[Rfam]
RNA: Plant small nucleolar RNA U3
Organism: Oryza sativa
RNA sequence: ACGACCUUACUUGAACAGGAUCUGUUCUAUAGGCUCGUACCGUUGCAUCCUUUACCAAUAAGGAGGCAAGCACUCAAGUCUGGUUGAUGCGACAUGACCUCUGGGCCAGAGCGUGAUUAACGGCCAGGAUGACUCCCGAUGCGGGCUCAUCCGACGGCUGUAGAGGAUCGUUCCUGCCUGGUUCACUCCAGUGCAGGGUGGCCCAGAGGUUGUCUGACAGACA
Numbered sequence: 001a002c003g004a005c006c007u008u009a010c011u012u013g014a015a016c017a018g019g020a021u022c023u024g025u026u027c028u029a030u031a032g033g034c035u036c037g038u039a040c041c042g043u044u045g046c047a048u049c050c051u052u053u054a055c056c057a058a059u060a061a062g063g064a065g066g067c068a069a070g071c072a073c074u075c076a077a078g079u080c081u082g083g084u085u086g087a088u089g090c091g092a093c094a095u096g097a098c099c100u101c102u103g104g105g106c107c108a109g110a111g112c113g114u115g116a117u118u119a120a121c122g123g124c125c126a127g128g129a130u131g132a133c134u135c136c137c138g139a140u141g142c143g144g145g146c147u148c149a150u151c152c153g154a155c156g157g158c159u160g161u162a163g164a165g166g167a168u169c170g171u172u173c174c175u176g177c178c179u180g181g182u183u184c185a186c187u188c189c190a191g192u193g194c195a196g197g198g199u200g201g202c203c204c205a206g207a208g209g210u211u212g213u214c215u216g217a218c219a220g221a222c223a
Base pairs, nucleotide, nucleotide: 001038002037003035005033006032007031013027014026015025016024017023018022043069044068045067046066048064049063050062051061052060078222079221080220081219082218097210098209099208100207101206102205103204104203105202106201107200108199110172111171112170113169120161121160122159123158124157125156127152128151129150130149131148132147134145135144136143173197174196175195176194177193178191179190180189181188